[Rfam]
This 117-nucleotide RNA from Inhella crocodyli belongs to the Rfam family "ALIL pseudoknot". Rfam links the family to the GO term positive regulation of translational frameshifting. Rfam classes the family as a cis-regulatory element. The match comes from Rfam's covariance-model search (81 bits). For this family Rfam cites "Apical loop-internal loop RNA pseudoknots: a new type of stimulator of -1 translational frameshifting in bacteria" (Mazauric et al., J Biol Chem, 2008). NCBI's taxonomy places the organism under Bacteria, Pseudomonadati, Pseudomonadota, Sphaerotilaceae, Inhella.
RNA sequence: CGCGUUUUUCGCCCAGGCGCAGCUCAACAGCCGCAUCAAGUCCUGAAGGGCUUCGUCGACCAACAUCGCCAGCGCUUUGGGGUCGAGUCGAUCUGCCGUGUCAUGCAGAUCGCCCCG
Numbered sequence: 001c002g003c004g005u006u007u008u009u010c011g012c013c014c015a016g017g018c019g020c021a022g023c024u025c026a027a028c029a030g031c032c033g034c035a036u037c038a039a040g041u042c043c044u045g046a047a048g049g050g051c052u053u054c055g056u057c058g059a060c061c062a063a064c065a066u067c068g069c070c071a072g073c074g075c076u077u078u079g080g081g082g083u084c085g086a087g088u089c090g091a092u093c094u095g096c097c098g099u100g101u102c103a104u105g106c107a108g109a110u111c112g113c114c115c116c117g
Base pairs, nucleotide, nucleotide: 016032017031018030078117079116080115081114082113089112090111092109093108094107095106096105